A member of the RNA family "SAM/SAH riboswitch aptamer" from Marivivens niveibacter, 49 nucleotides long. NCBI's taxonomy places the organism under Bacteria, Pseudomonadota, Alphaproteobacteria, Rhodobacterales, Marivivens.

Nucleotides: 049
Stems, first nucleotide, its partner, number of pairs: 004031002007028004013022002015048003019045002
Number, partner (000 for none) and nucleotide at each position: 001000u002000c003000a004031c005030c006000c007028c008027c009026a010025c011000a012000a013022c014021g015048g016047c017046u018000u019045c020044c021014u022013g023000g024000c025010g026009u027008g028007g029000c030005g031004g032000g033000u034000c035000a036000c037000a038000u039000c040000u041000a042000a043000u044020g045019g046017a047016g048015c049000a